[Rfam]
RNA sequence: AAGCCAGCCAAUGAGUCUGCUUACCUGAAUGUGUUUCUGCAAAAACUCAUACAAAGCUGGCAAUUUAGAGUAGUCAUGUUACAAGCCUUAAAGACACAGAAGUCAUUAAGGUCCCUGAAAAUGGCUAUAAGA
Numbered sequence: 001a002a003g004c005c006a007g008c009c010a011a012u013g014a015g016u017c018u019g020c021u022u023a024c025c026u027g028a029a030u031g032u033g034u035u036u037c038u039g040c041a042a043a044a045a046c047u048c049a050u051a052c053a054a055a056g057c058u059g060g061c062a063a064u065u066u067a068g069a070g071u072a073g074u075c076a077u078g079u080u081a082c083a084a085g086c087c088u089u090a091a092a093g094a095c096a097c098a099g100a101a102g103u104c105a106u107u108a109a110g111g112u113c114c115c116u117g118a119a120a121a122u123g124g125c126u127a128u129a130a131g132a
Stems, first nucleotide, its partner, number of pairs: 003061005016043001018041003073125004085112007093104003
The family of this 132-nucleotide RNA from Molossus molossus is "Small nucleolar RNA SNORA33".
About the family: ACA33 is a member of the H/ACA class of snoRNA that guide the sites of modification of uridines to pseudouridines.
It is annotated as an H/ACA-box small nucleolar RNA.
Rfam links the family to the GO terms nucleolus and RNA processing.